A member of the RNA family "rmf RNA" from Azomonas macrocytogenes, 123 nucleotides long. It is annotated as a cis-regulatory element.
Nucleotides: 123
Base pairs, nucleotide, nucleotide: 021037022036023035024034025033026032027031042065043064044063045062047060073087074086075085076084077083078082089105090104091103092102093101094100
Number, partner (000 for none) and nucleotide at each position: 001000u002000c003000g004000g005000g006000u007000a008000g009000a010000a011000c012000u013000g014000a015000a016000a017000c018000c019000a020000g021037u022036c023035g024034c025033a026032c027031c028000g029000c030000u031027g032026g033025u034024g035023c036022g037021a038000u039000c040000a041000a042065g043064g044063c045062c046000c047060g048000c049000c050000a051000c052000a053000c054000u055000g056000g057000c058000g059000c060047c061000a062045g063044g064043c065042c066000u067000u068000a069000a070000u071000g072000c073087g074086g075085c076084a077083g078082g079000c080000a081000a082078u083077c084076u085075g086074c087073c088000u089105g090104g091103u092102c093101c094100u095000g096000c097000a098000a099000c100094g101093g102092g103091a104090c105089c106000a107000a108000c109000g110000g111000g112000a113000a114000a115000a116000a117000a118000g119000u120000c121000a122000a123000c